[Rfam]
RNA sequence: CUUUGGACCCACCUGAGGUCUAAGGCGGAAGGAG
Numbered sequence: 001c002u003u004u005g006g007a008c009c010c011a012c013c014u015g016a017g018g019u020c021u022a023a024g025g026c027g028g029a030a031g032g033a034g
Stems, first nucleotide, its partner, number of pairs: 001025008
L31-Firmicutes ribosomal protein leader: a 34-nucleotide RNA. Rfam's curators put it in the seed alignment. The family's RNA type in Rfam is cis-regulatory leader. The family is grouped with related families in Rfam's "Ribosomal Protein L31 Leader clan". On this family, see Eckert and Weinberg, BMC Microbiol 2020: "Discovery of 20 novel ribosomal leader candidates in bacteria and archaea". The family's consensus secondary structure is taken from published work.